[Rfam]
RNA sequence: CUUCUGCUAUGAUGAUUUUGAAUAUAUUCACAUGUCAGACUUCAGAGAUUUUAGAAUCAAUGAGAAUACCAAUUCAGUUUUCUGAGCAGAAG
Numbered sequence: 001c002u003u004c005u006g007c008u009a010u011g012a013u014g015a016u017u018u019u020g021a022a023u024a025u026a027u028u029c030a031c032a033u034g035u036c037a038g039a040c041u042u043c044a045g046a047g048a049u050u051u052u053a054g055a056a057u058c059a060a061u062g063a064g065a066a067u068a069c070c071a072a073u074u075c076a077g078u079u080u081u082c083u084g085a086g087c088a089g090a091a092g
Stems, first nucleotide, its partner, number of pairs: 001092007047058004